[Rfam]
RNA sequence: ACAGCCCACAAGCAGCACAAAAAUGUGGUUGAUGGACUCCACCAUGGACUGCGUCCACCACAUUCUUGUGCUGCUUGUGGGCUGC
Numbered sequence: 001a002c003a004g005c006c007c008a009c010a011a012g013c014a015g016c017a018c019a020a021a022a023a024u025g026u027g028g029u030u031g032a033u034g035g036a037c038u039c040c041a042c043c044a045u046g047g048a049c050u051g052c053g054u055c056c057a058c059c060a061c062a063u064u065c066u067u068g069u070g071c072u073g074c075u076u077g078u079g080g081g082c083u084g085c
Base pairs, nucleotide, nucleotide: 002084003083005081006080007079010078011075012074013073014072015071016070017069018068022064023063024062025061026060027059028058029057
RNA: mir-16 microRNA precursor family
Organism: Callithrix jacchus